The family of this 185-nucleotide sequence from Bacillus benzoevorans is "Group II catalytic intron D1-D4-5". Group II introns are found in rRNA, tRNA and mRNA of organelles in fungi, plants and protists, and also in mRNA in bacteria. The organism belongs to Bacillus, within Bacteria.
RNA sequence: UUUCACUUUAUAACGGAGGAUAGGAAUGAAGAAACCAUGUUUUCUGAAACUAUCCCGUCAAUAGUCCUGCAUGCGUUAUGAUUGACAGAUUAUAGGGUGUGAAGUACAGGUAGAUUCGGCAGAACGAAGGCUGUAGCCAUUCCUGUGGAAAAGGUAUGUCAACGGAUAUGCCGCACAGCUGAAAA
Numbered sequence: 001u002u003u004c005a006c007u008u009u010a011u012a013a014c015g016g017a018g019g020a021u022a023g024g025a026a027u028g029a030a031g032a033a034a035c036c037a038u039g040u041u042u043u044c045u046g047a048a049a050c051u052a053u054c055c056c057g058u059c060a061a062u063a064g065u066c067c068u069g070c071a072u073g074c075g076u077u078a079u080g081a082u083u084g085a086c087a088g089a090u091u092a093u094a095g096g097g098u099g100u101g102a103a104g105u106a107c108a109g110g111u112a113g114a115u116u117c118g119g120c121a122g123a124a125c126g127a128a129g130g131c132u133g134u135a136g137c138c139a140u141u142c143c144u145g146u147g148g149a150a151a152a153g154g155u156a157u158g159u160c161a162a163c164g165g166a167u168a169u170g171c172c173g174c175a176c177a178g179c180u181g182a183a184a185a
Stems, first nucleotide, its partner, number of pairs: 018055006031045001033043002057176002066110004070101005076095008117173005125164002129160002131148003
It scores 71 bits against the family's covariance model. The family has 139 seed sequences and 720 matches in Rfam 15.1.